[Rfam]
RNA sequence: UAUAUUAUUGCAGAAGAGAGGCGUAAUGAGCCCGCCGAAGGAGCAACAGCCCCGGAAUCUCUCAGGCAAAAGGACUGUAAUAAUGAU
Numbered sequence: 001u002a003u004a005u006u007a008u009u010g011c012a013g014a015a016g017a018g019a020g021g022c023g024u025a026a027u028g029a030g031c032c033c034g035c036c037g038a039a040g041g042a043g044c045a046a047c048a049g050c051c052c053c054g055g056a057a058u059c060u061c062u063c064a065g066g067c068a069a070a071a072g073g074a075c076u077g078u079a080a081u082a083a084u085g086a087u
Stems, first nucleotide, its partner, number of pairs: 006082008020032003034067003037063002041061003047054001
This 87-nucleotide RNA from Acinetobacter larvae belongs to the Rfam family "Glycine riboswitch aptamer". Rfam's curators write: This family represents the bacterial glycine riboswitch. Its Rfam clan is "Glycine riboswitch clan". Pairs were carried over by alignment from the consensus structure.